[Rfam]
Description
The record is a 124-nucleotide RNA from Brassica carinata, which matches "MIR9563 microRNA precursor family" in Rfam.
RNA sequence: AUAAUAUAAGAAUCCGUCUCUUAAUUUUAACUAAAAAUAUAAGAACCGACUCUUAAAUUAGAGUUUUAAGAACCGGUUCUUAACUUUUUUUAGUUAAAAGUUAAAAGACGAGUUUUUAUAUCGC
Numbered sequence: 001a002u003a004a005u006a007u008a009a010g011a012a013u014c015c016g017u018c019u020c021u022u023a024a025u026u027u028u029a030a031c032u033a034a035a036a037a038u039a040u041a042a043g044a045a046c047c048g049a050c051u052c053u054u055a056a057a058u059u060a061g062a063g064u065u066u067u068a069a070g071a072a073c074c075g076g077u078u079c080u081u082a083a084c085u086u087u088u089u090u091u092a093g094u095u096a097a098a099a100g101u102u103a104a105a106a107g108a109c110g111a112g113u114u115u116u117u118a119u120a121u122c123g124c
Stems, first nucleotide, its partner, number of pairs: 002123001004121010015110005021104006027097011040082006

Description:
Taxonomically the source falls in Brassica (Eukaryota, Viridiplantae, Streptophyta, Magnoliopsida).